[Rfam]
RNA sequence: GGUUGUAAAUGUGAGGCCAUAACAGAAGUGCUCAUGGUAUUGCCUGUCAGAUUCCAGAGAAUCUGCAAAUUCUACU
Numbered sequence: 001g002g003u004u005g006u007a008a009a010u011g012u013g014a015g016g017c018c019a020u021a022a023c024a025g026a027a028g029u030g031c032u033c034a035u036g037g038u039a040u041u042g043c044c045u046g047u048c049a050g051a052u053u054c055c056a057g058a059g060a061a062u063c064u065g066c067a068a069a070u071u072c073u074a075c076u
Base pairs, nucleotide, nucleotide: 015044016043017042021076024073025072026071027070028040029039030038048065049064050063051062052061053060054059
Record summary: A member of the RNA family "Mammalian CPEB3 ribozyme" from Alligator mississippiensis, 76 nucleotides long. The base pairs follow the family's consensus structure, which is taken from published work. A search with the family's covariance model found it, with a score of 47 bits.